[Rfam]
RNA sequence: UUGCCCAAUGAUUAUAGCAAGACGCGUUAUUAUGAGGACUUAAUGCUGGAAUUCUUCACCUCUUUUUUUUUUUUCCUAUACUUUUCUUUUUCUCUUUUUCUUUCUUUGGAUGUCCAGCGUCCUGUGAACAAGAUUAUGAGAUAUGAGGGCAA
Number, nucleotide and partner (000 for none) at each position: 001u152002u151003g150004c149005c148006c147007a000008a000009u000010g000011a000012u000013u000014a000015u000016a000017g000018c000019a000020a000021g000022a000023c000024g000025c000026g000027u000028u000029a000030u000031u000032a000033u000034g000035a055036g054037g053038a052039c000040u050041u049042a000043a000044u000045g000046c000047u000048g000049g041050a040051a000052u038053u037054c036055u035056u000057c000058a000059c000060c000061u000062c000063u000064u000065u000066u000067u000068u000069u000070u000071u000072u000073u000074u000075c000076c000077u000078a000079u000080a000081c000082u000083u000084u000085u000086c000087u000088u000089u000090u000091u000092c000093u000094c000095u000096u000097u000098u000099u000100c000101u000102u000103u000104c000105u000106u000107u000108g000109g000110a000111u000112g000113u000114c000115c000116a000117g000118c000119g000120u000121c000122c000123u000124g000125u000126g000127a000128a000129c000130a000131a000132g000133a000134u000135u000136a000137u000138g000139a000140g000141a000142u000143a000144u000145g000146a000147g006148g005149g004150c003151a002152a001